[Rfam]
RNA sequence: AUCACUUAAUUGGUUGAUGUAUGCAUAAUUAAAAAUGAUUUUAUGCUCGAUUAGUUUCAAAGCAGUUGCGACGCAAAUAAAAAUGUCAGGAAAAUUAGGGGUAUUCUAAGGAAAUUGGUACGACCGAGUGGACUCGAACCACCGACCCCCACCA
Number, nucleotide and partner (000 for none) at each position: 001a000002u000003c000004a000005c000006u000007u000008a000009a000010u000011u000012g000013g000014u000015u000016g000017a000018u000019g000020u000021a000022u000023g000024c049025a000026u000027a000028a000029u000030u043031a042032a041033a040034a000035a000036u000037g000038a000039u000040u033041u032042u031043a030044u000045g000046c000047u000048c000049g024050a000051u000052u000053a000054g000055u000056u000057u000058c000059a000060a000061a000062g000063c000064a000065g000066u082067u081068g000069c000070g000071a000072c000073g000074c000075a000076a000077a000078u000079a000080a000081a067082a066083a000084u000085g000086u000087c000088a000089g000090g000091a000092a000093a000094a000095u000096u000097a000098g000099g000100g000101g000102u000103a000104u000105u000106c000107u000108a000109a000110g000111g000112a000113a000114a000115u000116u151117g150118g149119u000120a000121c000122g000123a000124c000125c144126g143127a000128g142129u141130g140131g139132a000133c000134u000135c000136g000137a000138a000139c131140c130141a129142c128143c126144g125145a000146c000147c000148c000149c118150c117151a116152c000153c000154a000
This 154-nucleotide RNA from Thiosulfativibrio zosterae belongs to the Rfam family "Bacterial antisense RNA HPnc0260". On this family, see Sharma et al., Nature 2010: "The primary transcriptome of the major human pathogen Helicobacter pylori".